The record is an 87-nucleotide RNA from Naumannella cuiyingiana, which matches "Glycine riboswitch aptamer" in Rfam. The base pairs follow the family's consensus structure. The source organism's lineage runs through Bacteria, Bacillati, Actinomycetota, Propionibacteriaceae and Naumannella.
Nucleotides: 087
Base pairs, nucleotide, nucleotide: 006082007081008080009079010078011077012076013075020031021030022029023028033066034065035064036062037061040060041059042058046054047053
Number, partner (000 for none) and nucleotide at each position: 001000a002000c003000a004000a005000c006082c007081g008080g009079c010078g011077c012076g013075g014000g015000a016000g017000a018000g019000a020031c021030c022029g023028c024000a025000g026000c027000g028023g029022c030021g031020g032000c033066g034065c035064c036062g037061a038000a039000g040060g041059g042058g043000c044000a045000a046054c047053c048000u049000c050000c051000c052000c053047g054046g055000a056000a057000c058042c059041u060040c061037u062036c063000a064035g065034g066033c067000a068000c069000c070000c071000g072000a073000g074000a075013c076012c077011g078010c079009g080008u081007c082006g083000g084000c085000g086000c087000u